The record is a 453-nucleotide part of an RNA from Dimargaris verticillata, which matches "Eukaryotic large subunit ribosomal RNA" in Rfam. NCBI's taxonomy places the organism under Eukaryota, Opisthokonta, Dimargaritomycetes, Dimargaritales, Dimargaris. It scores 2613 bits against the family's covariance model.
[Rfam]
RNA sequence: GGUAGUAGCGAUUAUCCGCAGUAGGUAUCGACUGCGGAGACUGAAGUGGAGAAGGGUUCCACCCGAACCAACGUGGGAGGUGGGUUAGUCGGUCCUAAGGGGGAGGUUAACUCCAGCAAAGGGGCACAUCUGAUGUGCCACGCCCCGAAAGGGAAACGGGUUAAUAUUCCCGUACCGGGGCACGGGGCGCGCAGCGGCAACGCAAGGCGCGCGCCGAGACGCCGAGCCAUGACCUGGGGAGAGCAAUCUUUUCUGCUUGACGGGUUUAACGGGUGUCCCUGGAAUGCUGUCACAGCGCGAAGGGCGAUGCCAGCACCCGCCAGAGCCGCUUGCAUGUAGCGGUCCGGUGCUCAUGGCGCGGCCCUUGAAAAUCGGCGGCCUAUCAUCAGGCGUCCCGUCCCCGCCCGUACCGAUAUCCGCAUCAGGUCUCCAAGGUUAGAAGCCUCUAGUCGU
Numbered sequence: 001g002g003u004a005g006u007a008g009c010g011a012u013u014a015u016c017c018g019c020a021g022u023a024g025g026u027a028u029c030g031a032c033u034g035c036g037g038a039g040a041c042u043g044a045a046g047u048g049g050a051g052a053a054g055g056g057u058u059c060c061a062c063c064c065g066a067a068c069c070a071a072c073g074u075g076g077g078a079g080g081u082g083g084g085u086u087a088g089u090c091g092g093u094c095c096u097a098a099g100g101g102g103g104a105g106g107u108u109a110a111c112u113c114c115a116g117c118a119a120a121g122g123g124g125c126a127c128a129u130c131u132g133a134u135g136u137g138c139c140a141c142g143c144c145c146c147g148a149a150a151g152g153g154a155a156a157c158g159g160g161u162u163a164a165u166a167u168u169c170c171c172g173u174a175c176c177g178g179g180g181c182a183c184g185g186g187g188c189g190c191g192c193a194g195c196g197g198c199a200a201c202g203c204a205a206g207g208c209g210c211g212c213g214c215c216g217a218g219a220c221g222c223c224g225a226g227c228c229a230u231g232a233c234c235u236g237g238g239g240a241g242a243g244c245a246a247u248c249u250u251u252u253c254u255g256c257u258u259g260a261c262g263g264g265u266u267u268a269a270c271g272g273g274u275g276u277c278c279c280u281g282g283a284a285u286g287c288u289g290u291c292a293c294a295g296c297g298c299g300a301a302g303g304g305c306g307a308u309g310c311c312a313g314c315a316c317c318c319g320c321c322a323g324a325g326c327c328g329c330u331u332g333c334a335u336g337u338a339g340c341g342g343u344c345c346g347g348u349g350c351u352c353a354u355g356g357c358g359c360g361g362c363c364c365u366u367g368a369a370a371a372u373c374g375g376c377g378g379c380c381u382a383u384c385a386u387c388a389g390g391c392g393u394c395c396c397g398u399c400c401c402c403g404c405c406c407g408u409a410c411c412g413a414u415a416u417c418c419g420c421a422u423c424a425g426g427u428c429u430c431c432a433a434g435g436u437u438a439g440a441a442g443c444c445u446c447u448a449g450u451c452g453u
Stems, first nucleotide, its partner, number of pairs: 015038008039451004048431004054411002059083005068076002090407003094152002099146002101117001105114002124138003156173005176403004182398004186393001194203003212377006221362004226357007234347003237257002240254003261319005276307002278304003285297004326342005417426002433445004